Annotation
The family of this 100-nucleotide sequence from Oryctolagus cuniculus is "Small nucleolar RNA SNORD124". Rfam classes the family as a C/D-box small nucleolar RNA. For this family Rfam cites "snoSeeker: an advanced computational package for screening of guide and orphan snoRNA genes in the human genome" (Yang et al., Nucleic Acids Res, 2006). Taxonomically the source falls in Oryctolagus (Eukaryota, Gnathostomata, Eutheria, Leporidae).

[Rfam]
RNA sequence: UGACUCCAAGGAAGGAAUGAUGUCCCUUGAGACUCAAGAAAAGGAUUCUGAGCCUUGGCUUUGAAGGAGCCACUCAAUCCCUGACCUUCCUUGAGGCAAA
Numbered sequence: 001u002g003a004c005u006c007c008a009a010g011g012a013a014g015g016a017a018u019g020a021u022g023u024c025c026c027u028u029g030a031g032a033c034u035c036a037a038g039a040a041a042a043g044g045a046u047u048c049u050g051a052g053c054c055u056u057g058g059c060u061u062u063g064a065a066g067g068a069g070c071c072a073c074u075c076a077a078u079c080c081c082u083g084a085c086c087u088u089c090c091u092u093g094a095g096g097c098a099a100a
Stems, first nucleotide, its partner, number of pairs: 009091007